[Rfam]
Nucleotides: 106
Stems, first nucleotide, its partner, number of pairs: 014077004024071008034043002046063002049060003084106009
Number, partner (000 for none) and nucleotide at each position: 001000g002000c003000g004000a005000u006000g007000a008000g009000c010000u011000g012000a013000g014077u015076u016075g017074g018000a019000u020000a021000a022000g023000u024071c025070g026069g027068c028067g029066g030065g031064c032000a033000c034043u035042c036000c037000u038000c039000c040000g041000g042035g043034a044000a045000a046063u047062g048000c049060a050059c051058g052000a053000u054000g055000u056000g057000g058051c059050g060049u061000g062047c063046a064031g065030c066029c067028c068027g069026c070025c071024g072000c073000c074017c075016c076015a077014a078000u079000a080000c081000g082000c083000a084106a085105g086104g087103a088102c089101g090100c091099c092098c093000u094000u095000u096000a097000u098092g099091g100090g101089c102088g103087u104086c105085c106084u